Source information:
Rfam assigns this 111-nucleotide RNA sequence from Hibiscus syriacus to the family "MIR403 microRNA precursor family". It scores 82 bits against the family's covariance model. A reference for the family is Mica et al. (2009), "High throughput approaches reveal splicing of primary microRNA transcripts and tissue specific expression of mature microRNAs in Vitis vinifera", BMC Genomics.

[Rfam]
Nucleotides: 111
Base pairs, nucleotide, nucleotide: 001109002108003107005105006104007103011099012098013097014096015095016094017093018092019091020090021089022088023087024086025085026084028082029081030080042071044069
Number, partner (000 for none) and nucleotide at each position: 001109g002108c003107a004000g005105a006104u007103u008000u009000c010000a011099g012098g013097u014096u015095u016094g017093u018092g019091c020090g021089u022088g023087a024086a025085u026084c027000u028082a029081a030080u031000a032000g033000a034000a035000c036000u037000g038000u039000a040000c041000u042071a043000c044069a045000a046000a047000a048000a049000c050000g051000a052000a053000a054000a055000u056000c057000u058000g059000g060000a061000a062000a063000g064000c065000u066000g067000g068000a069044u070000u071042u072000a073000g074000u075000u076000u077000c078000a079000u080030g081029u082028u083000a084026g085025a086024u087023u088022c089021a090020c091019g092018c093017a094016c095015a096014a097013a098012c099011u100000c101000g102000u103007a104006a105005u106000c107003u108002g109001u110000c111000u